Ribosomal protein L10 leader: a 133-nucleotide sequence from Gloeomargarita lithophora. By type it is a cis-regulatory leader. The family's consensus secondary structure was predicted with CMfinder.
[Rfam]
RNA sequence: UUUUCAGUGAAUCUUUGACCGCAGACCGCAGGUGCAUCGAGCCUAAAUUUCCUGCCGAGGUCAACAGCCUUUCUGCCCGUGGGGGGAGAAUUUGCUGUGACCCGGCCAACGACCGGGUUUUUUGUUGGGGGUA
Numbered sequence: 001u002u003u004u005c006a007g008u009g010a011a012u013c014u015u016u017g018a019c020c021g022c023a024g025a026c027c028g029c030a031g032g033u034g035c036a037u038c039g040a041g042c043c044u045a046a047a048u049u050u051c052c053u054g055c056c057g058a059g060g061u062c063a064a065c066a067g068c069c070u071u072u073c074u075g076c077c078c079g080u081g082g083g084g085g086g087a088g089a090a091u092u093u094g095c096u097g098u099g100a101c102c103c104g105g106c107c108a109a110c111g112a113c114c115g116g117g118u119u120u121u122u123u124g125u126u127g128g129g130g131g132u133a
Stems, first nucleotide, its partner, number of pairs: 028055005034042002100118006107111001
Lineage of the source: Bacteria > Cyanophyceae > Gloeomargaritales > Gloeomargaritaceae > Gloeomargarita lithophora.